[Rfam]
Rfam assigns this 89-nucleotide sequence from Centaurea solstitialis to the family "Small nucleolar RNA R16". It is annotated as a C/D-box small nucleolar RNA. For this family Rfam cites "Purified box C/D snoRNPs are able to reproduce site-specific 2'-O-methylation of target RNA in vitro" (Galardi et al., Mol Cell Biol, 2002).
RNA sequence: AACGGCAUAUGAUGAAAUCUCAGUUUUAUGCUUAACUCUCUGAUUUUACAGUGGUGACAACAAAACUCCGCUUAUUAUCUGAUGCCUUA
Numbered sequence: 001a002a003c004g005g006c007a008u009a010u011g012a013u014g015a016a017a018u019c020u021c022a023g024u025u026u027u028a029u030g031c032u033u034a035a036c037u038c039u040c041u042g043a044u045u046u047u048a049c050a051g052u053g054g055u056g057a058c059a060a061c062a063a064a065a066c067u068c069c070g071c072u073u074a075u076u077a078u079c080u081g082a083u084g085c086c087u088u089a
Stems, first nucleotide, its partner, number of pairs: 004086004
Overview
Its family is annotated with RNA processing and nucleolus in the Gene Ontology.